[Rfam]
RNA sequence: CAGGCUAUUGCGGGAGAGACUGACCCACCCUUGCGGGCGGGUUGGCGCCGAAGGAGCAACCGCCCCGGAAACUCUCAGGCAAAAGGACCGCAAUGGCCGG
Numbered sequence: 001c002a003g004g005c006u007a008u009u010g011c012g013g014g015a016g017a018g019a020c021u022g023a024c025c026c027a028c029c030c031u032u033g034c035g036g037g038c039g040g041g042u043u044g045g046c047g048c049c050g051a052a053g054g055a056g057c058a059a060c061c062g063c064c065c066c067g068g069a070a071a072c073u074c075u076c077a078g079g080c081a082a083a084a085g086g087a088c089c090g091c092a093a094u095g096g097c098c099g100g
Stems, first nucleotide, its partner, number of pairs: 006095008020045007047080003050076002054074003060068002